[Rfam]
RNA sequence: UACCUUUGCAUCCGAAUUGCAACCAUACAAUUCAUACAUAAUAAUCAUUUAAAAUAAUAUUAGCAUG
Numbered sequence: 001u002a003c004c005u006u007u008g009c010a011u012c013c014g015a016a017u018u019g020c021a022a023c024c025a026u027a028c029a030a031u032u033c034a035u036a037c038a039u040a041a042u043a044a045u046c047a048u049u050u051a052a053a054a055u056a057a058u059a060u061u062a063g064c065a066u067g
Base pairs, nucleotide, nucleotide: 014033015032016031017030018029019028